Background
The family of this 80-nucleotide RNA sequence from Hermetia illucens is "drz-agam-1 ribozyme". NCBI's taxonomy places the organism under Eukaryota, Protostomia, Aparaglossata, Diptera, Hermetia. The base pairs follow the family's consensus structure, which is taken from published work.
RNA sequence: AUCAUACUAAACCCUUUCUCCACCUCCACGUGGUGGUCGCUGGGAGUUAUUUCUUCAUGAAAAACUGCAGACGGAGAAGG
Numbered sequence: 001a002u003c004a005u006a007c008u009a010a011a012c013c014c015u016u017u018c019u020c021c022a023c024c025u026c027c028a029c030g031u032g033g034u035g036g037u038c039g040c041u042g043g044g045a046g047u048u049a050u051u052u053c054u055u056c057a058u059g060a061a062a063a064a065c066u067g068c069a070g071a072c073g074g075a076g077a078a079g080g
Base pairs, nucleotide, nucleotide: 013080014079015078016077017076019074020073022034023033024032046066048064050062051061052060054059

Its family is annotated with catalytic activity in the Gene Ontology.